RNA: PyrR binding site
Organism: Rummeliibacillus stabekisii
RNA sequence: GGUACCUUUAAAUCAGUCCAGAGAGGCUGACAAGGACAGCGGAAUUGCUUAGAAAAAGAUGGUGUUAGAUUAUGCCCUUUUUCUAUGCUGAAAAAGAGGCUUCUUGUCAGAAUUAUGGCAAGAAGCCUCUUUUGU
Numbered sequence: 001g002g003u004a005c006c007u008u009u010a011a012a013u014c015a016g017u018c019c020a021g022a023g024a025g026g027c028u029g030a031c032a033a034g035g036a037c038a039g040c041g042g043a044a045u046u047g048c049u050u051a052g053a054a055a056a057a058g059a060u061g062g063u064g065u066u067a068g069a070u071u072a073u074g075c076c077c078u079u080u081u082u083c084u085a086u087g088c089u090g091a092a093a094a095a096g097a098g099g100c101u102u103c104u105u106g107u108c109a110g111a112a113u114u115a116u117g118g119c120a121a122g123a124a125g126c127c128u129c130u131u132u133u134g135u
Stems, first nucleotide, its partner, number of pairs: 005035004013030006053084001055082005061076005095130014